[Rfam]
RNA: Selenocysteine insertion sequence 4
Organism: Psychrilyobacter sp. S5
Nucleotides: 038
Stems, first nucleotide, its partner, number of pairs: 013027006
Number, partner (000 for none) and nucleotide at each position: 001000g002000g003000a004000a005000c006000u007000u008000g009000u010000a011000c012000u013027c014026g015025u016024u017023g018022c019000g020000g021000u022018g023017c024016a025015a026014c027013g028000a029000u030000c031000u032000u033000a034000a035000a036000a037000g038000a